[Rfam]
RNA sequence: AGUUGAGGUAGAGGCGCGACAGACCAAGAGUACCCUUGUAGAGGCGCGAGAGGCCGAAGAUGCAUGGGGAAAGGGGUCGUCGCCGAAGUGCAAUCCGAUUCUCGUAGGAUUGUGCUGGGCCUAUAUCGAACAGGUAUAGGACUGUCACCAAAAAACUUCCCCGGUUUUUUGGUGAAGCGCUACUUCAUUC
Numbered sequence: 001a002g003u004u005g006a007g008g009u010a011g012a013g014g015c016g017c018g019a020c021a022g023a024c025c026a027a028g029a030g031u032a033c034c035c036u037u038g039u040a041g042a043g044g045c046g047c048g049a050g051a052g053g054c055c056g057a058a059g060a061u062g063c064a065u066g067g068g069g070a071a072a073g074g075g076g077u078c079g080u081c082g083c084c085g086a087a088g089u090g091c092a093a094u095c096c097g098a099u100u101c102u103c104g105u106a107g108g109a110u111u112g113u114g115c116u117g118g119g120c121c122u123a124u125a126u127c128g129a130a131c132a133g134g135u136a137u138a139g140g141a142c143u144g145u146c147a148c149c150a151a152a153a154a155a156c157u158u159c160c161c162c163g164g165u166u167u168u169u170u171g172g173u174g175a176a177g178c179g180c181u182a183c184u185u186c187a188u189u190c
Stems, first nucleotide, its partner, number of pairs: 006185006016083005023077003033068003037064004087116010098105001117143002120140008145175011
Shown here is a 190-nucleotide sequence from Thermosediminibacter oceani, a member of the family "Lysine riboswitch aptamer". NCBI's taxonomy places the organism under Bacteria, Bacillota, Thermosediminibacterales, Thermosediminibacter, Thermosediminibacter oceani. Gene Ontology term of the family: lysine biosynthetic process.